[Rfam]
Overview: The record is a 115-nucleotide RNA from Oceanispirochaeta crateris, which matches "FMN riboswitch aptamer (RFN element)" in Rfam.
RNA sequence: UAGUAUCUUCAGUGCAGGGUGAAAUUCCCGACCGUCGGUAUAGCCCGCGAGCCGUAAUGGCUGAUUCGGUUUAAUUCCGAAGUCGACAGUAGAGUCUGGAUGGAAGAAGAUGUAG
Numbered sequence: 001u002a003g004u005a006u007c008u009u010c011a012g013u014g015c016a017g018g019g020u021g022a023a024a025u026u027c028c029c030g031a032c033c034g035u036c037g038g039u040a041u042a043g044c045c046c047g048c049g050a051g052c053c054g055u056a057a058u059g060g061c062u063g064a065u066u067c068g069g070u071u072u073a074a075u076u077c078c079g080a081a082g083u084c085g086a087c088a089g090u091a092g093a094g095u096c097u098g099g100a101u102g103g104a105a106g107a108a109g110a111u112g113u114a115g
Stems, first nucleotide, its partner, number of pairs: 003113008017029003031095002033085002036047003043083002051061003065081005087098003
Notes:
It scores 111 bits against the family's covariance model. The RFN element is a highly conserved domain that is found frequently in the 5'-untranslated regions of prokaryotic mRNAs that encode for flavin mononucleotide (FMN) biosynthesis and transport proteins.